[Rfam]
RNA sequence: UCAGAUCGCUAUCGUAUCUUACGGUAAAGAGAAACCGGCCGUACUGGGCCACGAUGAAUCAGCUUACGCCAAAAACCGUCGUGCCGUACUGGCCUACUAGGGCCUGCUAAUAAUCAGCGCCAAGAGGCUGUUAUUUUGUA
Dot-bracket structure: ((((..((.....((.((((........)))).))....))..)))).................((((......((.(((.((..((.((((.....................)))).)))).))..).)).....))))
CpoB/ybgF ICR thermometer: a 140-nucleotide RNA sequence from Sodalis-like symbiont of Philaenus spumarius. Imprinting control region from upstream of cpoB/ybgF (tol/pal system protein). The family's RNA type in Rfam is RNA thermoregulator. Gene Ontology terms of the family: response to temperature stimulus and regulation of translation.